[Rfam]
RNA: Cyanobacterial functional RNA 1
Organism: Synechococcus sp. JA-3-3Ab
RNA sequence: GCGGAGACGCAUGUUUCCGUUCACUCCUCACACCAUCCGCCGCUCGACGUCGAGUCGGGCGGUU
Number, nucleotide and partner (000 for none) at each position: 001g020002c019003g018004g017005a016006g015007a014008c013009g000010c000011a000012u000013g008014u007015u006016u005017c004018c003019g002020u001021u000022c000023a000024c000025u000026c000027c000028u000029c000030a000031c000032a000033c000034c000035a000036u000037c000038c000039g000040c000041c061042g060043c059044u058045c057046g056047a055048c000049g000050u000051c000052g000053a000054g000055u047056c046057g045058g044059g043060c042061g041062g000063u000064u000